Rfam assigns this 76-nucleotide RNA from Ameiurus melas to the family "mir-7563 microRNA precursor family". A search with the family's covariance model found it, with a score of 80 bits. Lineage of the source: Eukaryota > Bilateria > Gnathostomata > Characiphysae > Ameiurus. The family has 3 seed sequences and 362 matches in Rfam 15.1. Gene Ontology terms of the family: RISC complex and miRNA-mediated post-transcriptional gene silencing.
RNA sequence: ACCGCGUACUUACCUACUACAUAGUAGCUGAGAUACAUGUAUUUCUCCUACUAUAUAGUAGGUAAUUACGUGGUCU
Numbered sequence: 001a002c003c004g005c006g007u008a009c010u011u012a013c014c015u016a017c018u019a020c021a022u023a024g025u026a027g028c029u030g031a032g033a034u035a036c037a038u039g040u041a042u043u044u045c046u047c048c049u050a051c052u053a054u055a056u057a058g059u060a061g062g063u064a065a066u067u068a069c070g071u072g073g074u075c076u
Base pairs, nucleotide, nucleotide: 001074002073003072004071005070006069007068008067010065011064012063013062014061015060017058018057019056021054022053023052024051025050026049027048030045031044033042034041035040